[Rfam]
This 75-nucleotide RNA from Hymenochirus boettgeri belongs to the Rfam family "mir-551 microRNA precursor family". It scores 79 bits against the family's covariance model. A reference for the family is Murchison et al. (2008), "Conservation of small RNA pathways in platypus", Genome Res. Gene Ontology terms of the family: miRNA-mediated post-transcriptional gene silencing and RISC complex. The source organism's lineage runs through Eukaryota, Opisthokonta, Chordata, Amphibia and Hymenochirus. The family has 29 seed sequences and 1,097 matches in Rfam 15.1.

RNA sequence: UGGCCUUUGAAAUCAAGCUUGGGUUAGACCUGGUUAUUAAAUACUGAGGCGACCCAUACUUGGUUUCUGAGGCUG
Numbered sequence: 001u002g003g004c005c006u007u008u009g010a011a012a013u014c015a016a017g018c019u020u021g022g023g024u025u026a027g028a029c030c031u032g033g034u035u036a037u038u039a040a041a042u043a044c045u046g047a048g049g050c051g052a053c054c055c056a057u058a059c060u061u062g063g064u065u066u067c068u069g070a071g072g073c074u075g
Base pairs, nucleotide, nucleotide: 002074003073004072005071006070007069009067010066011065012064013063014062016060017059021055022054023053024052029049030048031047